RNA sequence: CGGCUGUAAUGGUCAACUUGGGUAUGAAGACACUCGAAUUUCUCGAUUUGCUCUGUACCGAUUUUCUCCUCACCGAGAAACCCCCAACGUCGCCCAGCACGAAUCUCGCGGUGGCCACCCACUCGCAUGGGUAACCUGCGACGCUGCGCGUGGUCCUAAGCAAUGAAGAUAACACUUGAGGGAGGUUUCACUCUGCAGAGAUAUUUUCACCGUCAGAUGGCGAAUUGGAUUACGAUCGUUGAGGGAUUCGGAUCAGACAGUUGAGAUGGAGAUGUCAACUCCACAAUACUUUUU
Numbered sequence: 001c002g003g004c005u006g007u008a009a010u011g012g013u014c015a016a017c018u019u020g021g022g023u024a025u026g027a028a029g030a031c032a033c034u035c036g037a038a039u040u041u042c043u044c045g046a047u048u049u050g051c052u053c054u055g056u057a058c059c060g061a062u063u064u065u066c067u068c069c070u071c072a073c074c075g076a077g078a079a080a081c082c083c084c085c086a087a088c089g090u091c092g093c094c095c096a097g098c099a100c101g102a103a104u105c106u107c108g109c110g111g112u113g114g115c116c117a118c119c120c121a122c123u124c125g126c127a128u129g130g131g132u133a134a135c136c137u138g139c140g141a142c143g144c145u146g147c148g149c150g151u152g153g154u155c156c157u158a159a160g161c162a163a164u165g166a167a168g169a170u171a172a173c174a175c176u177u178g179a180g181g182g183a184g185g186u187u188u189c190a191c192u193c194u195g196c197a198g199a200g201a202u203a204u205u206u207u208c209a210c211c212g213u214c215a216g217a218u219g220g221c222g223a224a225u226u227g228g229a230u231u232a233c234g235a236u237c238g239u240u241g242a243g244g245g246a247u248u249c250g251g252a253u254c255a256g257a258c259a260g261u262u263g264a265g266a267u268g269g270a271g272a273u274g275u276c277a278a279c280u281c282c283a284c285a286a287u288a289c290u291u292u293u294u
Stems, first nucleotide, its partner, number of pairs: 002014003020291006029276004034271001035269001037267001039264002048260002053256003058251004063080006081245003085241005090235003094228004100222002103218004108213004113155001115153004120148001122146001123141005129136002156160001164209007175200003182193003
RNA: Fungal signal recognition particle RNA
Organism: Lasiosphaeria miniovina